[Rfam]
Small nucleolar RNA SNORD72: a 79-nucleotide RNA sequence from Aegotheles bennettii. Rfam describes the family as follows. snoRNA HBII-240 belongs to the CD family of snoRNAs. It is the human orthologue of the mouse MBII-240 and is predicted to guide 2'O-ribose methylation of the large 28S rRNA at residue U4590. Taxonomically the source falls in Aegotheles (Eukaryota, Amniota, Sauria, Neoaves).
RNA sequence: AGCUUGUCAAUGAUGUUUCUUAUUAAAAAUGUCAAUGUAUGAAUUCCAUAGUGAUUACAGUGCAUUACUGAGAGAAGCU
Numbered sequence: 001a002g003c004u005u006g007u008c009a010a011u012g013a014u015g016u017u018u019c020u021u022a023u024u025a026a027a028a029a030u031g032u033c034a035a036u037g038u039a040u041g042a043a044u045u046c047c048a049u050a051g052u053g054a055u056u057a058c059a060g061u062g063c064a065u066u067a068c069u070g071a072g073a074g075a076a077g078c079u
Base pairs, nucleotide, nucleotide: 002078003077004076005075007073008072